[Rfam]
RNA: Glycine riboswitch aptamer
Organism: Streptomyces sp. adm13(2018)
RNA sequence: CGACCCCGUGCGGGAGAGUCCCCCGGAGCAGACUUCCGGUGGGCGCCGAAGGAGCAAAUCCUCCCCGGAAUCUCUCAGGCCCCUGUACCGCGCGGACGAG
Numbered sequence: 001c002g003a004c005c006c007c008g009u010g011c012g013g014g015a016g017a018g019u020c021c022c023c024c025g026g027a028g029c030a031g032a033c034u035u036c037c038g039g040u041g042g043g044c045g046c047c048g049a050a051g052g053a054g055c056a057a058a059u060c061c062u063c064c065c066c067g068g069a070a071u072c073u074c075u076c077a078g079g080c081c082c083c084u085g086u087a088c089c090g091c092g093c094g095g096a097c098g099a100g
Base pairs, nucleotide, nucleotide: 006095007094008093009092010091011090012089013088020043021042022041045080046079047078048076049075052074053073054072059067